RNA sequence: UGUCGCACAUUCACUGUCCAUGUCGCACAACCACCAUGCAUGUUGCACAUACACCAUGCAUGUUGCACAAUCACCGUGCAUGUUGCACAAUCACCGUGCAUGUUGCACAAUCAACGUGCAUGUUGCACAACCAC
Numbered sequence: 001u002g003u004c005g006c007a008c009a010u011u012c013a014c015u016g017u018c019c020a021u022g023u024c025g026c027a028c029a030a031c032c033a034c035c036a037u038g039c040a041u042g043u044u045g046c047a048c049a050u051a052c053a054c055c056a057u058g059c060a061u062g063u064u065g066c067a068c069a070a071u072c073a074c075c076g077u078g079c080a081u082g083u084u085g086c087a088c089a090a091u092c093a094c095c096g097u098g099c100a101u102g103u104u105g106c107a108c109a110a111u112c113a114a115c116g117u118g119c120a121u122g123u124u125g126c127a128c129a130a131c132c133a134c
Stems, first nucleotide, its partner, number of pairs: 005066002007063004012058001020050004025046003081133001084120005096108005122132001124130001

Source information
This 134-nucleotide RNA from Closterium sp. NIES-68 belongs to the Rfam family "Glm Y RNA activator of glmS mRNA". Lineage of the source: Eukaryota > Streptophyta > Zygnematophyceae > Zygnematophycidae > Closterium peracerosum-strigosum-littorale complex. About the family: This family consists of a number of bacterial RNA genes of around 167 bases in length. The tke1 RNA gene is present in Escherichia coli, Shigella flexneri, Yersinia pestis and Salmonella species where it is found between the yfhK and purL genes. The function of this RNA is unknown. The family's RNA type in Rfam is small RNA. A reference for the family is Rivas et al. (2001), "Computational identification of noncoding RNAs in E. coli by comparative genomics", Curr Biol.